The record is a 72-nucleotide RNA from Varroa destructor, which matches "mir-375 microRNA precursor family" in Rfam. Taxonomically the source falls in Varroa (Eukaryota, Parasitiformes, Mesostigmata, Varroidae). A search with the family's covariance model found it, with a score of 52 bits. The base pairs follow the family's consensus structure, which was predicted with RNAalifold.
RNA sequence: ACUCACUUGAUCCGGGCGAAACAAAGCUCACUAAAUUAUAAAAAUGCUUUGUUCGUUCGGCUCGAGUUAGGG
Numbered sequence: 001a002c003u004c005a006c007u008u009g010a011u012c013c014g015g016g017c018g019a020a021a022c023a024a025a026g027c028u029c030a031c032u033a034a035a036u037u038a039u040a041a042a043a044a045u046g047c048u049u050u051g052u053u054c055g056u057u058c059g060g061c062u063c064g065a066g067u068u069a070g071g072g
Stems, first nucleotide, its partner, number of pairs: 002070002005067006012060002017055002021052004026047002